The record is a 46-nucleotide RNA from Singulisphaera acidiphila, which matches "Acido-Lenti-1 RNA" in Rfam. The organism belongs to Singulisphaera acidiphila, within Bacteria. The match comes from Rfam's covariance-model search (44 bits). The base pairs follow the family's consensus structure, which is taken from published work.
RNA sequence: CCAGGGGCUUGCGCCCCUGGCUAUUGACGGUCGCCCUUUCGGGGCU
Numbered sequence: 001c002c003a004g005g006g007g008c009u010u011g012c013g014c015c016c017c018u019g020g021c022u023a024u025u026g027a028c029g030g031u032c033g034c035c036c037u038u039u040c041g042g043g044g045c046u
Stems, first nucleotide, its partner, number of pairs: 001020008033045005